[Rfam]
Overview
The record is a 92-nucleotide RNA from Nyctereutes procyonoides, which matches "mir-8799 microRNA precursor family" in Rfam.
RNA sequence: GGUGGGUGCGCCAGAUCCUGGGGUGUGUCCCCUGGCGCCCAGUGCUCCCGGCCUGUGCCGCUGGAAUUGCACUCCCGGCCGCGCAGCUCCCU
Numbered sequence: 001g002g003u004g005g006g007u008g009c010g011c012c013a014g015a016u017c018c019u020g021g022g023g024u025g026u027g028u029c030c031c032c033u034g035g036c037g038c039c040c041a042g043u044g045c046u047c048c049c050g051g052c053c054u055g056u057g058c059c060g061c062u063g064g065a066a067u068u069g070c071a072c073u074c075c076c077g078g079c080c081g082c083g084c085a086g087c088u089c090c091c092u
Stems, first nucleotide, its partner, number of pairs: 001092002004089003010084002012081001014079001017078002020075003024071004028065002032063001033060006042053001044052003
About this RNA:
NCBI's taxonomy places the organism under Eukaryota, Eumetazoa, Teleostomi, Amniota, Nyctereutes.